[Rfam]
Shown here is an 82-nucleotide sequence from a Burkholderiaceae bacterium, a member of the family "SucA RNA motif". On this family, see Weinberg et al., Nucleic Acids Res 2007: "Identification of 22 candidate structured RNAs in bacteria using the CMfinder comparative genomics pipeline". The organism belongs to Burkholderiaceae, within Bacteria. The base pairs follow the family's consensus structure, which is taken from published work.

RNA sequence: UCGCAUCCGCCAACCGGUUCAGCCGUGUCGCGGAAGGUUUCUCAACCAGCUCGGAUCCCCUGCAGGGGGACGAAAGGCAGCG
Numbered sequence: 001u002c003g004c005a006u007c008c009g010c011c012a013a014c015c016g017g018u019u020c021a022g023c024c025g026u027g028u029c030g031c032g033g034a035a036g037g038u039u040u041c042u043c044a045a046c047c048a049g050c051u052c053g054g055a056u057c058c059c060c061u062g063c064a065g066g067g068g069g070a071c072g073a074a075a076g077g078c079a080g081c082g
Stems, first nucleotide, its partner, number of pairs: 002082003006034005015025004036047004050076002056070006